[Rfam]
RNA: Alphaproteobacterial ar14
RNA sequence: GUCACUCAGGUGACCUACUCCUCCUCCCAAGGGCACCUGACAGAAUGGCGGCAUCCUCCUCCCAGUCGCCGUUCAGAUAAUUCGAAAAGCCUGCCGCUCCUCCUCCCGCGGCAGGCUUUUUCG
Dot-bracket structure: ......((((((.(((.............))).))))))...((((((((((............))))))))))............(((((((((((..........))))))))))).....